[Rfam]
RNA sequence: GUACUUGGUAGAGGUGCUGUAUUUAUGAUUAGCUUUAUGGAGUUUAAGCAACGUUGAAUUAAAGUGAAAGGAAAUAUAGCCGAAGUUUUUAAUCCUUGCUGUAGGAUUAUUUGCUGGGGAUACAUAUAAGAUGUGUAUCACUGUCACAUUAUUUGUGGAGAGCUAUCAUUCAA
Numbered sequence: 001g002u003a004c005u006u007g008g009u010a011g012a013g014g015u016g017c018u019g020u021a022u023u024u025a026u027g028a029u030u031a032g033c034u035u036u037a038u039g040g041a042g043u044u045u046a047a048g049c050a051a052c053g054u055u056g057a058a059u060u061a062a063a064g065u066g067a068a069a070g071g072a073a074a075u076a077u078a079g080c081c082g083a084a085g086u087u088u089u090u091a092a093u094c095c096u097u098g099c100u101g102u103a104g105g106a107u108u109a110u111u112u113g114c115u116g117g118g119g120a121u122a123c124a125u126a127u128a129a130g131a132u133g134u135g136u137a138u139c140a141c142u143g144u145c146a147c148a149u150u151a152u153u154u155g156u157g158g159a160g161a162g163c164u165a166u167c168a169u170u171c172a173a
Base pairs, nucleotide, nucleotide: 006168007167008166009165010164011163016080017079018078019077020076021075022074023073024072032065033064034063035062036061037060084115085114086113090109091108092107093106094105095104116142117141119139120138121137122136123135124134125133126132144158145157146156147155148154
Description:
A member of the RNA family "Lysine riboswitch aptamer" from Clostridium collagenovorans, 173 nucleotides long. It scores 113 bits against the family's covariance model. The organism belongs to Clostridium collagenovorans, within Bacteria. The family's consensus secondary structure is taken from published work.